This 79-nucleotide sequence from Turnix velox belongs to the Rfam family "Small nucleolar RNA SNORD87". Rfam links the family to the GO terms RNA processing and nucleolus. Pairs were carried over by alignment from the consensus structure.

RNA sequence: ACUGGCAUAAUGAUGAAAUCUUUGCCGUUUACCCAUCUGAGUAGUUUUUGAUGUGUAUUUUUGAAUCUGAAAUGCCAGU
Numbered sequence: 001a002c003u004g005g006c007a008u009a010a011u012g013a014u015g016a017a018a019u020c021u022u023u024g025c026c027g028u029u030u031a032c033c034c035a036u037c038u039g040a041g042u043a044g045u046u047u048u049u050g051a052u053g054u055g056u057a058u059u060u061u062u063g064a065a066u067c068u069g070a071a072a073u074g075c076c077a078g079u
Stems, first nucleotide, its partner, number of pairs: 001079007